Small nucleolar RNA R38: an 84-nucleotide sequence from Hermanssonia centrifuga. The family's consensus secondary structure was predicted with PFOLD. Gene Ontology terms of the family: nucleolus and RNA processing. Rfam's curators write: snoR38 is a C/D box small nucleolar RNA conserved across yeast, human, Arabidopsis and rice. It is encoded in the intron of elongation factor-1 gamma in both pombe and cerevisiae. snoR38 guides the methylation of 2'-O-ribose sites in 28S rRNA. It scores 46 bits against the family's covariance model. The organism belongs to Hermanssonia, within Eukaryota. The literature on the family includes a 1995 paper in Trends Biochem Sci by Bachellerie et al., "Antisense snoRNAs: a family of nucleolar RNAs with long complementarities to rRNA".
Nucleotides: 084
Base pairs, nucleotide, nucleotide: 001084004081005080006079007078
Number, partner (000 for none) and nucleotide at each position: 001084g002000c003000c004081g005080g006079a007078a008000g009000a010000a011000g012000a013000u014000g015000a016000g017000a018000a019000u020000c021000a022000u023000u024000c025000a026000c027000a028000a029000u030000c031000a032000g033000u034000u035000a036000u037000c038000c039000c040000u041000g042000u043000c044000u045000u046000a047000a048000c049000a050000a051000u052000u053000a054000u055000g056000u057000c058000g059000a060000g061000a062000u063000a064000u065000a066000a067000c068000c069000a070000g071000a072000u073000u074000c075000u076000g077000a078007u079006u080005c081004c082000u083000c084001c